The record is an 84-nucleotide RNA from Megalops atlanticus, which matches "Small nucleolar RNA SNORD35" in Rfam.
[Rfam]
RNA sequence: UGCAAGUGAUGUUUAUCUCACGAUGGUCUUCCUAGCCUGUAUGGCUCUGAUGACAAUGCCUCAUGGCAAAACUGAUGCAGCUCU
Numbered sequence: 001u002g003c004a005a006g007u008g009a010u011g012u013u014u015a016u017c018u019c020a021c022g023a024u025g026g027u028c029u030u031c032c033u034a035g036c037c038u039g040u041a042u043g044g045c046u047c048u049g050a051u052g053a054c055a056a057u058g059c060c061u062c063a064u065g066g067c068a069a070a071a072c073u074g075a076u077g078c079a080g081c082u083c084u
Base pairs, nucleotide, nucleotide: 001079002078003077004076
U35 is a C/D box snoRNA located in intron 6 of ribosomal protein L13A and intron 3 of ribosomal protein S11 in humans and at homologous positions in mouse and chicken ribosomal protein genes. U35 guides the methylation of 2'-O-ribose sites in 28S rRNA. The source organism's lineage runs through Eukaryota, Deuterostomia, Actinopterygii, Megalopidae and Megalops. Its Rfam clan is "SNORD35 clan".